[Rfam]
RNA: TPP riboswitch aptamer (THI element)
RNA sequence: GAAAACCAUUAGGGGGGCAUAUCCAUUUGACCGAUGUGCUGAGAGUGACUUUCGUCUGACCCUUUGACCUGAUCUGGUUAGUACCAGCGGAGGAAAAGUGGAUAAAAGAAAAU
Numbered sequence: 001g002a003a004a005a006c007c008a009u010u011a012g013g014g015g016g017g018c019a020u021a022u023c024c025a026u027u028u029g030a031c032c033g034a035u036g037u038g039c040u041g042a043g044a045g046u047g048a049c050u051u052u053c054g055u056c057u058g059a060c061c062c063u064u065u066g067a068c069c070u071g072a073u074c075u076g077g078u079u080a081g082u083a084c085c086a087g088c089g090g091a092g093g094a095a096a097a098g099u100g101g102a103u104a105a106a107a108g109a110a111a112a113u
Base pairs, nucleotide, nucleotide: 006101007100008099009098010097011063012062013061014060016057017039018038019037020036021035022034023033047056048055049054068093069092070091074087075086076085077084